[Rfam]
RNA sequence: GAGAUUCGCCAGGACGAACCUCCUCCCUCGUCCUCGCGAUCCGGCGGCCAGCGAACCUCCUCCCUCGCUUCGCCGCCCUCCAUGAGAACGCCCGCCGAUCUCCUCCCCGGCGGGCGUUUUUC
Numbered sequence: 001g002a003g004a005u006u007c008g009c010c011a012g013g014a015c016g017a018a019c020c021u022c023c024u025c026c027c028u029c030g031u032c033c034u035c036g037c038g039a040u041c042c043g044g045c046g047g048c049c050a051g052c053g054a055a056c057c058u059c060c061u062c063c064c065u066c067g068c069u070u071c072g073c074c075g076c077c078c079u080c081c082a083u084g085a086g087a088a089c090g091c092c093c094g095c096c097g098a099u100c101u102c103c104u105c106c107c108c109g110g111c112g113g114g115c116g117u118u119u120u121u122c
Stems, first nucleotide, its partner, number of pairs: 007038003011034007043077006050069003087118011
The family of this 122-nucleotide RNA from Kaistia soli is "Alphaproteobacterial ar14". From the family's description: Smr14C2 was renamed NfeR1 (Nodule Formation Efficiency RNA) highly expressed in salt stress and during the symbiotic interaction on legume roots. Lineage of the source: Bacteria > Hyphomicrobiales > Kaistiaceae > Kaistia > Kaistia soli. A search with the family's covariance model found it, with a score of 72 bits.